[Rfam]
RNA sequence: GAGCCAUAUGAAAAUGUCUUACUACUGACCUUUAUAACUAUGAAGGUUUCUGUAUUUGAUCUGAGCUCA
Numbered sequence: 001g002a003g004c005c006a007u008a009u010g011a012a013a014a015u016g017u018c019u020u021a022c023u024a025c026u027g028a029c030c031u032u033u034a035u036a037a038c039u040a041u042g043a044a045g046g047u048u049u050c051u052g053u054a055u056u057u058g059a060u061c062u063g064a065g066c067u068c069a
Stems, first nucleotide, its partner, number of pairs: 001068004012033003016029003
Dot-bracket structure: ((((.......(((.(((........))).)))...............................)))).

Record summary: Shown here is a 69-nucleotide sequence from Rousettus aegyptiacus, a member of the family "Small nucleolar RNA U2-30". The family's RNA type in Rfam is C/D-box small nucleolar RNA. The base pairs follow the family's consensus structure, which is taken from published work. The source organism's lineage runs through Eukaryota, Opisthokonta, Metazoa, Boreoeutheria and Rousettus. The family has 21 seed sequences and 664 matches in Rfam 15.1. It scores 76 bits against the family's covariance model.